The record is a 59-nucleotide sequence, which matches "RAGATH-30 RNA" in Rfam.
By type it is a small RNA.
[Rfam]
Nucleotides: 059
Base pairs, nucleotide, nucleotide: 027040028039029038030037031036042057043056044055045054046053047052
Number, partner (000 for none) and nucleotide at each position: 001000a002000a003000g004000a005000a006000u007000a008000u009000a010000a011000g012000a013000a014000u015000g016000u017000a018000u019000c020000g021000a022000a023000u024000a025000a026000g027040u028039c029038u030037a031036u032000a033000u034000a035000a036031g037030u038029a039028g040027a041000a042057u043056c044055u045054a046053c047052c048000a049000g050000g051000u052047g053046g054045u055044a056043g057042a058000a059000a